[Rfam]
This 159-nucleotide sequence from Martelella mediterranea belongs to the Rfam family "speF leader". Pairs were carried over by alignment from the consensus structure, which was predicted with RNAalifold. The source organism's lineage runs through Bacteria, Alphaproteobacteria, Hyphomicrobiales, Aurantimonadaceae and Martelella. Rfam describes the family as follows. This family is a putative regulatory RNA structure that is found upstream of the speF gene encoding ornithine decarboxylase in Agrobacterium tumefaciens and other alpha-proteobacteria. Rfam classes the family as a cis-regulatory leader.
RNA sequence: GUUCAGCUUUCCAACAGCUGAAUACUCAUAGAGGCACAUACCAUCAUUGCCGGAAGUGCGGUUGGGAUAUCCCUCCAAUCCAAGGCAGACAAAGCCGAACCUGAAACCUUUACGGGUGGGUUCUAUCUUGAGCGGUCGCCGCUGCAACAAUCACCGGGG
Number, nucleotide and partner (000 for none) at each position: 001g023002u022003u021004c020005a019006g018007c017008u016009u000010u000011c000012c000013a000014a000015c000016a008017g007018c006019u005020g004021a003022a002023u001024a000025c000026u000027c000028a000029u000030a000031g000032a000033g051034g050035c049036a048037c000038a000039u000040a000041c000042c000043a000044u000045c000046a000047u000048u036049g035050c034051c033052g000053g000054a000055a000056g000057u000058g139059c138060g137061g000062u000063u000064g000065g000066g000067a000068u000069a000070u000071c000072c000073c000074u000075c000076c000077a000078a000079u000080c000081c000082a000083a000084g096085g095086c000087a000088g000089a000090c000091a000092a000093a000094g000095c085096c084097g000098a000099a000100c000101c000102u000103g000104a000105a122106a121107c120108c119109u000110u000111u000112a000113c000114g000115g000116g000117u000118g000119g108120g107121u106122u105123c000124u000125a000126u000127c000128u000129u000130g000131a000132g000133c000134g000135g000136u000137c060138g059139c058140c000141g000142c000143u000144g000145c000146a000147a000148c000149a000150a000151u000152c000153a000154c000155c000156g000157g000158g000159g000